[Rfam]
RNA sequence: AUGCCUAUUGAUAAAGCUGUUAAUAUUUCAUCAUAGUUACAAUAAUUUAGUUAUAAAAAAGGAACUAUGAUAUAAU
Numbered sequence: 001a002u003g004c005c006u007a008u009u010g011a012u013a014a015a016g017c018u019g020u021u022a023a024u025a026u027u028u029c030a031u032c033a034u035a036g037u038u039a040c041a042a043u044a045a046u047u048u049a050g051u052u053a054u055a056a057a058a059a060a061g062g063a064a065c066u067a068u069g070a071u072a073u074a075a076u
Stems, first nucleotide, its partner, number of pairs: 030071008
The family of this 76-nucleotide sequence is "dfrA-dnaX RNA". It is annotated as a small RNA.